[Rfam]
Nucleotides: 072
Stems, first nucleotide, its partner, number of pairs: 001071007010025003027043005048064005
Number, partner (000 for none) and nucleotide at each position: 001071g002070g003069c004068g005067a006066a007065u008000u009000g010025g011024u012023c013000a014000a015000g016000a017000g018000g019000u020000u021000a022000a023012g024011a025010c026000g027043c028042a029041g030040c031039c032000c033000u034000c035000u036000c037000a038000c039031g040030g041029c042028u043027g044000a045000a046000u047000c048064c049063c050062g051061g052060g053000u054000u055000c056000g057000a058000u059000u060052c061051c062050c063049g064048g065007a066006u067005u068004c069003g070002u071001c072000a